[Rfam]
Rfam assigns this 105-nucleotide RNA from Alloscardovia omnicolens to the family "TPP riboswitch aptamer (THI element)". Rfam links the family to the GO term thiamine pyrophosphate binding. The base pairs follow the family's consensus structure, which is taken from published work. From the family's description: Vitamin B(1) in its active form thiamin pyrophosphate (TPP) is an essential coenzyme that is synthesised by coupling of pyrimidine and thiazole moieties in bacteria.
RNA sequence: GUACACCACGGGGAGCUUGUGUAACAGGCUGAGAGGAUGGUACGACCAUCGACCCUUGAACCUGAUGUGGAUAAUGCCAACGUAGGGAAAUGCAGUGCAUAUCAU
Numbered sequence: 001g002u003a004c005a006c007c008a009c010g011g012g013g014a015g016c017u018u019g020u021g022u023a024a025c026a027g028g029c030u031g032a033g034a035g036g037a038u039g040g041u042a043c044g045a046c047c048a049u050c051g052a053c054c055c056u057u058g059a060a061c062c063u064g065a066u067g068u069g070g071a072u073a074a075u076g077c078c079a080a081c082g083u084a085g086g087g088a089a090a091u092g093c094a095g096u097g098c099a100u101a102u103c104a105u
Base pairs, nucleotide, nucleotide: 004095007092008091010055011054012053015029016028017027018026019025036050037049038048039047040046061086062085063084064083068079069078070077